[Rfam]
RNA sequence: GGUCAUGAGCGCCAGCGUCAAGCCCCGGCUCGCUGGCCGGCAACCCAACAACCGCGUGGGGUGCCCCGGGUGAAGACCAGGCUCGUGCCAAGGCGGCACGGGCAAACGCGGGCC
Numbered sequence: 001g002g003u004c005a006u007g008a009g010c011g012c013c014a015g016c017g018u019c020a021a022g023c024c025c026c027g028g029c030u031c032g033c034u035g036g037c038c039g040g041c042a043a044c045c046c047a048a049c050a051a052c053c054g055c056g057u058g059g060g061g062u063g064c065c066c067c068g069g070g071u072g073a074a075g076a077c078c079a080g081g082c083u084c085g086u087g088c089c090a091a092g093g094c095g096g097c098a099c100g101g102g103c104a105a106a107c108g109c110g111g112g113c114c
Stems, first nucleotide, its partner, number of pairs: 001078004009038001011037006021030002039065003044061003048057002081103009

Rfam assigns this 114-nucleotide RNA sequence from Actinorhabdospora filicis to the family "SAM (S-adenosyl methionine) riboswitch aptamer". On this family, see Weinberg et al., RNA 2008: "The aptamer core of SAM-IV riboswitches mimics the ligand-binding site of SAM-I riboswitches". The organism belongs to Actinorhabdospora, within Bacteria. About the family: SAM-IV is a mRNA element that regulates gene expression via direct sensing of S-adenosylmethionine (SAM or AdoMet). SAM-IV riboswitches share conserved nucleotide positions with the previously described SAM-I riboswitches sequence analysis and molecular recognition experiments suggest that SAM-I and SAM-IV riboswitches share similar ligand binding sites, but have different scaffolds.